[Rfam]
RNA sequence: CGUUCAUCGGGAGGAUCCGAGGGACCUGGCCCUGCGACGGUCCGGCAACCUGCCCUGAGGCAAGGUGCCAAUGCCAGGAACGAUGAGGA
Numbered sequence: 001c002g003u004u005c006a007u008c009g010g011g012a013g014g015a016u017c018c019g020a021g022g023g024a025c026c027u028g029g030c031c032c033u034g035c036g037a038c039g040g041u042c043c044g045g046c047a048a049c050c051u052g053c054c055c056u057g058a059g060g061c062a063a064g065g066u067g068c069c070a071a072u073g074c075c076a077g078g079a080a081c082g083a084u085g086a087g088g089a
Stems, first nucleotide, its partner, number of pairs: 003087006013043005021032003026077004044069004049065002051062004073081001

A member of the RNA family "SAM riboswitch aptamer (S box leader)" from Nonomuraea zeae, 89 nucleotides long. Taxonomically the source falls in Nonomuraea (Bacteria, Actinomycetota, Actinomycetes, Streptosporangiaceae). The match comes from Rfam's covariance-model search (59 bits).